Shown here is a 126-nucleotide RNA, a member of the family "DUF3800-I RNA". The sequence is in the family's curated seed alignment. From the family's description: Actinobacteria, Firmicutes, Fusobacteria, Proteobacteria (1 example), Tenericutes (2 examples). It is annotated as a small RNA.
[Rfam]
RNA sequence: AUAAGUACCGAAGGUUAUGCCUUGACAGGUCAAUAAGCAAUAACUGAUUGAAUAGAUUAAGCGUACUGUAAGUACGUCAGCUUGCUUAGAAGAAAACCAUAUUAAUGGUUUUCUUUUUUUAUGGUU
Numbered sequence: 001a002u003a004a005g006u007a008c009c010g011a012a013g014g015u016u017a018u019g020c021c022u023u024g025a026c027a028g029g030u031c032a033a034u035a036a037g038c039a040a041u042a043a044c045u046g047a048u049u050g051a052a053u054a055g056a057u058u059a060a061g062c063g064u065a066c067u068g069u070a071a072g073u074a075c076g077u078c079a080g081c082u083u084g085c086u087u088a089g090a091a092g093a094a095a096a097c098c099a100u101a102u103u104a105a106u107g108g109u110u111u112u113c114u115u116u117u118u119u120u121a122u123g124g125u126u
Stems, first nucleotide, its partner, number of pairs: 008029002011023004034088006044080003047057003061077006089116012